RNA sequence: UUGGUCCUGGUUCACGGCCCGCGCCGCGGUCCGACCCAGUACC
Numbered sequence: 001u002u003g004g005u006c007c008u009g010g011u012u013c014a015c016g017g018c019c020c021g022c023g024c025c026g027c028g029g030u031c032c033g034a035c036c037c038a039g040u041a042c043c
Base pairs, nucleotide, nucleotide: 003043004042005041007039008038009037010036015033016032017031019029020028021027022026
L31-Actinobacteria ribosomal protein leader: a 43-nucleotide RNA sequence from an Actinomycetales bacterium. It scores 37 bits against the family's covariance model. The family's RNA type in Rfam is cis-regulatory leader. The family's consensus secondary structure is taken from published work. The organism belongs to Actinomycetales, within Bacteria.